[Rfam]
RNA sequence: GGUUCGUGCCACGUCGCCGGUAGCUUUUCCGAGCAUUGACCGGCGAUGCUAUGAUCGAACCGAAACCAAAGUGUUUUCGCAUUAUAUAGGAAGCUAUGGAUGGAUGAUAUGUUCCUCUGUAGAGCCGUCUGUGCGAUAACAUCU
Numbered sequence: 001g002g003u004u005c006g007u008g009c010c011a012c013g014u015c016g017c018c019g020g021u022a023g024c025u026u027u028u029c030c031g032a033g034c035a036u037u038g039a040c041c042g043g044c045g046a047u048g049c050u051a052u053g054a055u056c057g058a059a060c061c062g063a064a065a066c067c068a069a070a071g072u073g074u075u076u077u078c079g080c081a082u083u084a085u086a087u088a089g090g091a092a093g094c095u096a097u098g099g100a101u102g103g104a105u106g107a108u109a110u111g112u113u114c115c116u117c118u119g120u121a122g123a124g125c126c127g128u129c130u131g132u133g134c135g136a137u138a139a140c141a142u143c144u
Stems, first nucleotide, its partner, number of pairs: 002060005007054001008052001012048006019041003023034003077136005089126002094122003098118003102114001
Dot-bracket structure: .(((((((...((((((.(((.(((......)))....))).))))))...).).)))))................(((((.......((...(((.(((.(...........).))).)))..)).....)))))........
Overview: Shown here is a 144-nucleotide RNA sequence from Cuscuta campestris, a member of the family "Small nucleolar RNA snoR2/U65". By type it is an H/ACA-box small nucleolar RNA. The family is grouped with related families in Rfam's "SNORA65 clan". The organism belongs to Cuscuta sect. Cleistogrammica, within Eukaryota.